[Rfam]
RNA sequence: UUGCCCAUCUAGGACUUUGAGGUGUCCUAUAUGACCAACACAGAGGGGUAGAUUAUUAUAGUUCUCUCAUAAACCUGUAGUGAAGGCUCAAAUCCUUCCUGUGGAUCCUGUCGGGAGAUACAAAA
Dot-bracket structure: .(((((.(((.....(.(...............)..)....))).))))).............(((((......((((((..(((.........))).))))))........)))))........

Shown here is a 125-nucleotide sequence from Oncorhynchus kisutch, a member of the family "Small nucleolar RNA SNORA26". Taxonomically the source falls in Oncorhynchus (Eukaryota, Chordata, Actinopteri, Protacanthopterygii). The snoRNA HBI-6 belong to the H/ACA family of snoRNAs, guiding the pseudouridylation of position U4522 if the 28S rRNA. HBI-6 is the human orthologue of mouse MBI-6 snoRNA. The match comes from Rfam's covariance-model search (47 bits). The family's RNA type in Rfam is H/ACA-box small nucleolar RNA.